Rfam assigns this 84-nucleotide RNA from Tricholaema leucomelas to the family "mir-571 microRNA precursor family". A search with the family's covariance model found it, with a score of 43 bits.
RNA sequence: GGAAGGGUCCUUGAAGAUGAUCUAGUUCCAAGCCCCCUGCCAUGUCAGGGGGCUUGGAACUAGAUGGUCUUCAAGGACCCUUCC
Numbered sequence: 001g002g003a004a005g006g007g008u009c010c011u012u013g014a015a016g017a018u019g020a021u022c023u024a025g026u027u028c029c030a031a032g033c034c035c036c037c038u039g040c041c042a043u044g045u046c047a048g049g050g051g052g053c054u055u056g057g058a059a060c061u062a063g064a065u066g067g068u069c070u071u072c073a074a075g076g077a078c079c080c081u082u083c084c
Base pairs, nucleotide, nucleotide: 001084002083003082004081006079008077009076012073013072014071015070016069017068018066019065021064022063023062024061026059027058028057032053033052034051035050036049037048038047039046
Dot-bracket structure: ((((.(.((..((((((((.((((.(((...((((((((......))))))))...))).)))))).))))))..)).).))))

Pairs were carried over by alignment from the consensus structure, which was predicted with RNAalifold.